The family of this 88-nucleotide RNA from Alkaliphilus serpentinus is "c-di-GMP-I riboswitch aptamer". Its family is annotated with cyclic-di-GMP binding in the Gene Ontology. Rfam's curators write: GEMM was predicted in a large-scale screen for bacterial structured RNA regulatory elements. The base pairs follow the family's consensus structure, which is taken from published work. The match comes from Rfam's covariance-model search (80 bits). The source organism's lineage runs through Bacteria, Bacillati, Bacillota, Clostridia and Alkaliphilus.
[Rfam]
RNA sequence: AUUCGUUAAUGGCACAGCUAUUGAAAAAUAGUGCCGCAAAGCUAUGGGUCUAAGGAAUUGUUUAUUCUAUGAUUGCCAGGUUGCCGAA
Numbered sequence: 001a002u003u004c005g006u007u008a009a010u011g012g013c014a015c016a017g018c019u020a021u022u023g024a025a026a027a028a029u030a031g032u033g034c035c036g037c038a039a040a041g042c043u044a045u046g047g048g049u050c051u052a053a054g055g056a057a058u059u060g061u062u063u064a065u066u067c068u069a070u071g072a073u074u075g076c077c078a079g080g081u082u083g084c085c086g087a088a
Stems, first nucleotide, its partner, number of pairs: 012037002017032006040082004045078003048073003055067004